S10-Clostridia ribosomal protein leader: a 102-nucleotide RNA from Schinkia azotoformans. The match comes from Rfam's covariance-model search (38 bits). On this family, see Eckert and Weinberg, BMC Microbiol 2020: "Discovery of 20 novel ribosomal leader candidates in bacteria and archaea".

RNA sequence: UUACAGCUAUGAUGUGGAAGGUUGCUGACACACCCGGCCCCUUUGCCAUGGCGAGUGUGAGGAAAUUUCCACGGAGUAUGUCUAUUCUAAAAUGGGCGAUAA
Numbered sequence: 001u002u003a004c005a006g007c008u009a010u011g012a013u014g015u016g017g018a019a020g021g022u023u024g025c026u027g028a029c030a031c032a033c034c035c036g037g038c039c040c041c042u043u044u045g046c047c048a049u050g051g052c053g054a055g056u057g058u059g060a061g062g063a064a065a066u067u068u069c070c071a072c073g074g075a076g077u078a079u080g081u082c083u084a085u086u087c088u089a090a091a092a093u094g095g096g097c098g099a100u101a102a
Stems, first nucleotide, its partner, number of pairs: 014072003019068003025061002028058004079101004085096003